[Rfam]
RNA sequence: CUUCCUGAGGAGCGUUGCAAGCCAUACCAUGUGGACUAGGCUCAGGACUCAUCUGCAACCACGCUCACCCGCA
Numbered sequence: 001c002u003u004c005c006u007g008a009g010g011a012g013c014g015u016u017g018c019a020a021g022c023c024a025u026a027c028c029a030u031g032u033g034g035a036c037u038a039g040g041c042u043c044a045g046g047a048c049u050c051a052u053c054u055g056c057a058a059c060c061a062c063g064c065u066c067a068c069c070c071g072c073a
Stems, first nucleotide, its partner, number of pairs: 003047006022034005